[Rfam]
RNA: drz-agam-2-2 ribozyme
Organism: Dendroctonus ponderosae
RNA sequence: GUUAGUUUGGGUUGGCGUUCAAAUGGCGUAGGGUUUAACCGCCCUGCGCAAUUCCUACUCGCACCUCCUCGUGGUGGACGCCGGUAACCAGGUGAGGACUCCAAGAUCGGGUAACCAACCCCGAUGGCGGAUACUUACCUGGGCUAACGCGAGAGGG
Numbered sequence: 001g002u003u004a005g006u007u008u009g010g011g012u013u014g015g016c017g018u019u020c021a022a023a024u025g026g027c028g029u030a031g032g033g034u035u036u037a038a039c040c041g042c043c044c045u046g047c048g049c050a051a052u053u054c055c056u057a058c059u060c061g062c063a064c065c066u067c068c069u070c071g072u073g074g075u076g077g078a079c080g081c082c083g084g085u086a087a088c089c090a091g092g093u094g095a096g097g098a099c100u101c102c103a104a105g106a107u108c109g110g111g112u113a114a115c116c117a118a119c120c121c122c123g124a125u126g127g128c129g130g131a132u133a134c135u136u137a138c139c140u141g142g143g144c145u146a147a148c149g150c151g152a153g154a155g156g157g
Stems, first nucleotide, its partner, number of pairs: 011082001013080001017079004026049008053157004058153004063075003067084002088142009100131003107118001109116002120127002